[Rfam]
RNA sequence: GCGAGACGGGUGGGCCCGCGGCGGAGUGCGACCGAUAAACUGUUCACGGACCACGCCGGGCGCAGCUCCCGCGCGGGGUCCGACCAUGAUCAGCCAGCAGCCGCUGCAACCCCAGGGAG
Numbered sequence: 001g002c003g004a005g006a007c008g009g010g011u012g013g014g015c016c017c018g019c020g021g022c023g024g025a026g027u028g029c030g031a032c033c034g035a036u037a038a039a040c041u042g043u044u045c046a047c048g049g050a051c052c053a054c055g056c057c058g059g060g061c062g063c064a065g066c067u068c069c070c071g072c073g074c075g076g077g078g079u080c081c082g083a084c085c086a087u088g089a090u091c092a093g094c095c096a097g098c099a100g101c102c103g104c105u106g107c108a109a110c111c112c113c114a115g116g117g118a119g
Base pairs, nucleotide, nucleotide: 048081049080050079051078052077056073057071058070059069060068095106096105097104098103
Rfam assigns this 119-nucleotide sequence from Streptomyces bungoensis to the family "Streptomyces-metK RNA". Pairs were carried over by alignment from the consensus structure, which is taken from published work.